Shown here is a 69-nucleotide RNA from Mycobacterium kansasii, a member of the family "ASpks TB sRNA".
On this family, see Arnvig and Young, Mol Microbiol 2009: "Identification of small RNAs in Mycobacterium tuberculosis".
Rfam 15.1 lists 9,052 matches to the family in 683 species.
The base pairs follow the family's consensus structure, which is taken from published work.
The organism belongs to Mycobacterium, within Bacteria.
The match comes from Rfam's covariance-model search (61 bits).
RNA sequence: UUUGAUCGACCCCAACCACAGCGGCUCGCUGCGCCCCUGCCCGUAAGUGGCCACAAUCGCCUGCGCCUC
Numbered sequence: 001u002u003u004g005a006u007c008g009a010c011c012c013c014a015a016c017c018a019c020a021g022c023g024g025c026u027c028g029c030u031g032c033g034c035c036c037c038u039g040c041c042c043g044u045a046a047g048u049g050g051c052c053a054c055a056a057u058c059g060c061c062u063g064c065g066c067c068u069c
Stems, first nucleotide, its partner, number of pairs: 014026001016024002027065003032059002038053002041050003